This 102-nucleotide sequence from Clostridium carboxidivorans belongs to the Rfam family "Purine riboswitch aptamer".
A reference for the family is Mandal et al. (2003), "Riboswitches Control Fundamental Biochemical Pathways in Bacillus subtilis and Other Bacteria", Cell.
Lineage of the source: Bacteria > Bacillota > Eubacteriales > Clostridium > Clostridium carboxidivorans.
Rfam links the family to the GO term purine nucleobase biosynthetic process.
The family's consensus secondary structure is taken from published work.
RNA sequence: CAUAAUACUAAAUAAGUCAUCCGUAUAAUCCUGAUAAUAAUGGUUCAGGAGUCUCUACUAGGAAACCGUAAUUUCCUUUCUAUGGAUGAAUCUGAGGAAACU
Numbered sequence: 001c002a003u004a005a006u007a008c009u010a011a012a013u014a015a016g017u018c019a020u021c022c023g024u025a026u027a028a029u030c031c032u033g034a035u036a037a038u039a040a041u042g043g044u045u046c047a048g049g050a051g052u053c054u055c056u057a058c059u060a061g062g063a064a065a066c067c068g069u070a071a072u073u074u075c076c077u078u079u080c081u082a083u084g085g086a087u088g089a090a091u092c093u094g095a096g097g098a099a100a101c102u
Stems, first nucleotide, its partner, number of pairs: 018088008029050006060077006